Notes:
Rfam assigns this 150-nucleotide RNA from Tursiops truncatus to the family "ODC internal ribosome entry site (IRES)". The source organism's lineage runs through Eukaryota, Metazoa, Chordata, Eutheria and Tursiops. Its family is annotated with ribosome binding in the Gene Ontology.
RNA sequence: AUUUUCACUGCUGCACCGAGGGCACACGUAUCUUCAGCGGGACUUGGAAUUCCUGGAGAAUUCAAUUGCCUUUGUGAAAGCUGGCAUAAUUUCUUUAAAUUUCAUCUCUUAGUUUCCCAUUUUGUUGUUUCAGAAAGAUAUCAAGAAACC
Numbered sequence: 001a002u003u004u005u006c007a008c009u010g011c012u013g014c015a016c017c018g019a020g021g022g023c024a025c026a027c028g029u030a031u032c033u034u035c036a037g038c039g040g041g042a043c044u045u046g047g048a049a050u051u052c053c054u055g056g057a058g059a060a061u062u063c064a065a066u067u068g069c070c071u072u073u074g075u076g077a078a079a080g081c082u083g084g085c086a087u088a089a090u091u092u093c094u095u096u097a098a099a100u101u102u103c104a105u106c107u108c109u110u111a112g113u114u115u116c117c118c119a120u121u122u123u124g125u126u127g128u129u130u131c132a133g134a135a136a137g138a139u140a141u142c143a144a145g146a147a148a149c150c
Base pairs, nucleotide, nucleotide: 006084010081011080012079016076017074018073019072020071021070022069023068024067026066039054040053041052042051090148091147092146093145094144095143100136101135102134103133